[Rfam]
RNA: Small nucleolar RNA SNORA9
Organism: Oryctolagus cuniculus
RNA sequence: CGGCAAGCCUCCAGCAUGGUUGGGUCUGCUGUGACCCUGUGCAUUCCUACAAUACUUGUCAGAAGUUUUGAAAUGGUUUGAGGCCUUGCCCUGCUCCAUCCAGUGUAAGGUUAUAGAACUUUCAGACAACU
Numbered sequence: 001c002g003g004c005a006a007g008c009c010u011c012c013a014g015c016a017u018g019g020u021u022g023g024g025u026c027u028g029c030u031g032u033g034a035c036c037c038u039g040u041g042c043a044u045u046c047c048u049a050c051a052a053u054a055c056u057u058g059u060c061a062g063a064a065g066u067u068u069u070g071a072a073a074u075g076g077u078u079u080g081a082g083g084c085c086u087u088g089c090c091c092u093g094c095u096c097c098a099u100c101c102a103g104u105g106u107a108a109g110g111u112u113a114u115a116g117a118a119c120u121u122u123c124a125g126a127c128a129a130c131u
Base pairs, nucleotide, nucleotide: 003059004058005057006056007055017043018042022037023036024035025034026033069124070123071122072121073120084110085109086108087107088106089105091103092102093101